[Rfam]
RNA sequence: AGUCCUGUAGGCGAAUAGUUUAAGCCGUCAGUUUCUCAAACUGAAGAUUGCGAGUGCGAAUCUCGUCGGGACUC
Numbered sequence: 001a002g003u004c005c006u007g008u009a010g011g012c013g014a015a016u017a018g019u020u021u022a023a024g025c026c027g028u029c030a031g032u033u034u035c036u037c038a039a040a041c042u043g044a045a046g047a048u049u050g051c052g053a054g055u056g057c058g059a060a061u062c063u064c065g066u067c068g069g070g071a072c073u074c
Stems, first nucleotide, its partner, number of pairs: 001073007010026003028044005050066005